[Rfam]
RNA sequence: UAAAAGGGCUUCCGCCAGCAAUGGCACCAAGAUUGUAUUCAUUACAGUCUUGGCUGAAUCGCAAUCAAAAGAUUUAGGAAGCACAAUUUUUAAUCCCGGGAUUUGUGGAGGACUUUCAGUCUUGCACAUCCCU
Numbered sequence: 001u002a003a004a005a006g007g008g009c010u011u012c013c014g015c016c017a018g019c020a021a022u023g024g025c026a027c028c029a030a031g032a033u034u035g036u037a038u039u040c041a042u043u044a045c046a047g048u049c050u051u052g053g054c055u056g057a058a059u060c061g062c063a064a065u066c067a068a069a070a071g072a073u074u075u076a077g078g079a080a081g082c083a084c085a086a087u088u089u090u091u092a093a094u095c096c097c098g099g100g101a102u103u104u105g106u107g108g109a110g111g112a113c114u115u116u117c118a119g120u121c122u123u124g125c126a127c128a129u130c131c132c133u
Base pairs, nucleotide, nucleotide: 008082009081010080011079012078014025015024016023017022027053028052029051030050031049032048033047034046035045036044037043054077055076056075057074058073059072060071099131100130101129102128105127106126107125108123109122111121112120113119114118

Rfam assigns this 133-nucleotide RNA sequence from Cynoglossus semilaevis to the family "U11 spliceosomal RNA". It is annotated as a spliceosomal small nuclear RNA. NCBI's taxonomy places the organism under Eukaryota, Eumetazoa, Actinopteri, Carangaria, Cynoglossus.